[Rfam]
RNA sequence: ACCAUAUUCGGACCGUCGGUCUACCGAGCAAUAUCACCCGCUCGGUGGAAGAUAUUCAUGUCUAUUGA
Numbered sequence: 001a002c003c004a005u006a007u008u009c010g011g012a013c014c015g016u017c018g019g020u021c022u023a024c025c026g027a028g029c030a031a032u033a034u035c036a037c038c039c040g041c042u043c044g045g046u047g048g049a050a051g052a053u054a055u056u057c058a059u060g061u062c063u064a065u066u067g068a
Base pairs, nucleotide, nucleotide: 004065005064006063010059011057012056015053016052017051020049021048022047023046024045025044026043027042028041029040